[Rfam]
RNA sequence: GGUCCGAUGUCACGUCGCUAAUAGCUUGAAUUAAGCGGUGAUACCAGUGAUGCUAUGAUUGGACCAAAAUAAAAAGGGAAUUUUGUUUGUUUCACAUUCUGAUAGGAAUAUGUGGAUUUCAUACUUUAUGAUCUUCGGAGCCAUUUUGUGCGAUUACAUUU
Numbered sequence: 001g002g003u004c005c006g007a008u009g010u011c012a013c014g015u016c017g018c019u020a021a022u023a024g025c026u027u028g029a030a031u032u033a034a035g036c037g038g039u040g041a042u043a044c045c046a047g048u049g050a051u052g053c054u055a056u057g058a059u060u061g062g063a064c065c066a067a068a069a070u071a072a073a074a075a076g077g078g079a080a081u082u083u084u085g086u087u088u089g090u091u092u093c094a095c096a097u098u099c100u101g102a103u104a105g106g107a108a109u110a111u112g113u114g115g116a117u118u119u120c121a122u123a124c125u126u127u128a129u130g131a132u133c134u135u136c137g138g139a140g141c142c143a144u145u146u147u148g149u150g151c152g153a154u155u156a157c158a159u160u161u
Stems, first nucleotide, its partner, number of pairs: 002064007009056001013052006021042002024036003092153002095150002105142002111137002114134005
The record is a 161-nucleotide RNA from Vigna radiata, which matches "Small nucleolar RNA snoR2/U65" in Rfam. Clan: SNORA65 clan. Its family is annotated with nucleolus and RNA processing in the Gene Ontology. By type it is an H/ACA-box small nucleolar RNA. On this family, see Shaw et al., J Cell Sci 1998: "Localization and processing from a polycistronic precursor of novel snoRNAs in maize". It scores 108 bits against the family's covariance model. The base pairs follow the family's consensus structure, which was predicted with WAR.